Rfam assigns this 102-nucleotide RNA sequence from Pichia inconspicua to the family "Small nucleolar RNA snR48".

RNA sequence: AUGAAUUUUUGAUUUCUUAUAUGUUUUUUCUGGCAUCUCUAAUGUUAGGGCAAUCUCAAAAGGAUUUGCUCGAUGAGUACAACCUUUGACUCGAAUCUGAAA
Numbered sequence: 001a002u003g004a005a006u007u008u009u010u011g012a013u014u015u016c017u018u019a020u021a022u023g024u025u026u027u028u029u030c031u032g033g034c035a036u037c038u039c040u041a042a043u044g045u046u047a048g049g050g051c052a053a054u055c056u057c058a059a060a061a062g063g064a065u066u067u068g069c070u071c072g073a074u075g076a077g078u079a080c081a082a083c084c085u086u087u088g089a090c091u092c093g094a095a096u097c098u099g100a101a102a
Stems, first nucleotide, its partner, number of pairs: 049070004
A search with the family's covariance model found it, with a score of 69 bits.
Clan: SNORD60 clan.
The family's RNA type in Rfam is C/D-box small nucleolar RNA.